[Rfam]
RNA sequence: GUGUAAGGAUGUUCGACUAAGAUCGUCACGUCCUGUGACAACGUCGAACUGACCCACGUCCUGUGGG
Numbered sequence: 001g002u003g004u005a006a007g008g009a010u011g012u013u014c015g016a017c018u019a020a021g022a023u024c025g026u027c028a029c030g031u032c033c034u035g036u037g038a039c040a041a042c043g044u045c046g047a048a049c050u051g052a053c054c055c056a057c058g059u060c061c062u063g064u065g066g067g
Stems, first nucleotide, its partner, number of pairs: 011049007025039005053067005
Notes: Bacillaceae-1 RNA: a 67-nucleotide RNA sequence from Alteribacillus iranensis. NCBI's taxonomy places the organism under Bacteria, Bacillati, Bacilli, Bacillaceae, Alteribacillus. Rfam classes the family as a small RNA. Pairs were carried over by alignment from the consensus structure, which is taken from published work.